[Rfam]
RNA sequence: AUUCCUUCUGUCGUGUAUCCUCGAUUAAUGCAGCUUCAGCUACUUUU
Numbered sequence: 001a002u003u004c005c006u007u008c009u010g011u012c013g014u015g016u017a018u019c020c021u022c023g024a025u026u027a028a029u030g031c032a033g034c035u036u037c038a039g040c041u042a043c044u045u046u047u
Base pairs, nucleotide, nucleotide: 010025011024012023013022032044033043
The record is a 47-nucleotide RNA from Lactuca sativa, which matches "Plastid-ycf3 group II-D1 intron" in Rfam. Gene Ontology term of the family: Group II intron splicing. On this family, see Richter et al., Plant Commun 2023: "Retrograde signaling in plants: A critical review focusing on the GUN pathway and beyond". Plastid rpl16 is a non-coding RNA (ncRNA) recognised in plastids. It was recognised in and intronic region of a ribosome rpl16 gene. The base pairs follow the family's consensus structure, which was predicted with LocARNA.